RNA sequence: GCCCAAAUAGUUUAACGGUAGAACGGGUGAUUUGUAAUCUCCAAACGUUGGUUCAAUUCCGACUUUGGGCU
Number, nucleotide and partner (000 for none) at each position: 001g070002c069003c068004c067005a066006a065007a064008u000009a000010g024011u023012u022013u021014a000015a000016c000017g000018g000019u000020a000021g013022a012023a011024c010025g000026g042027g041028u000029g039030a038031u000032u000033u000034g000035u000036a000037a000038u030039c029040u000041c027042c026043a000044a000045a000046c000047g063048u062049u061050g060051g059052u000053u000054c000055a000056a000057u000058u000059c051060c050061g049062a048063c047064u007065u006066u005067g004068g003069g002070c001071u000

Shown here is a 71-nucleotide sequence from Eubacterium ruminantium, a member of the family "tRNA". Rfam describes the family as follows. Transfer RNA (tRNA) molecules are approximately 80 nucleotides in length. Its family is annotated with triplet codon-amino acid adaptor activity in the Gene Ontology.